A member of the RNA family "mir-221 microRNA precursor family" from Anolis carolinensis, 83 nucleotides long. Taxonomically the source falls in Anolis (Eukaryota, Eumetazoa, Vertebrata, Lepidosauria).

RNA sequence: UUCCUCAGUCGCUCAGUAGUCAGUGUAGAUUCUGUCUUCUCAAUCAGCAGCUACAUCUGGCUACUGGGUCUCUGAGGACAUCU
Number, nucleotide and partner (000 for none) at each position: 001u000002u000003c000004c000005u000006c000007a000008g000009u000010c000011g000012c000013u067014c066015a065016g064017u063018a062019g000020u060021c059022a058023g056024u055025g054026u053027a052028g051029a000030u000031u000032c050033u049034g048035u047036c000037u000038u000039c000040u000041c000042a000043a000044u000045c000046a000047g035048c034049a033050g032051c028052u027053a026054c025055a024056u023057c000058u022059g021060g020061c000062u018063a017064c016065u015066g014067g013068g000069u000070c000071u000072c000073u000074g000075a000076g000077g000078a000079c000080a000081u000082c000083u000